The family of this 101-nucleotide sequence from Acetobacterium bakii is "azaaromatic riboswitch aptamer (yjdF RNA)". The family's consensus secondary structure is taken from published work. A search with the family's covariance model found it, with a score of 90 bits.
[Rfam]
RNA sequence: AAUAUUAAAGAUAAAAACACAGUUCUGGUCGGUAGUCCAGACGCAGUUUUGUACUGUCAGUAACCUGCCUCCUAAGGUUGUCCAUUCUUUGUCAGUAUUUU
Numbered sequence: 001a002a003u004a005u006u007a008a009a010g011a012u013a014a015a016a017a018c019a020c021a022g023u024u025c026u027g028g029u030c031g032g033u034a035g036u037c038c039a040g041a042c043g044c045a046g047u048u049u050u051g052u053a054c055u056g057u058c059a060g061u062a063a064c065c066u067g068c069c070u071c072c073u074a075a076g077g078u079u080g081u082c083c084a085u086u087c088u089u090u091g092u093c094a095g096u097a098u099u100u101u
Stems, first nucleotide, its partner, number of pairs: 006091006022042002025040004043057005067078004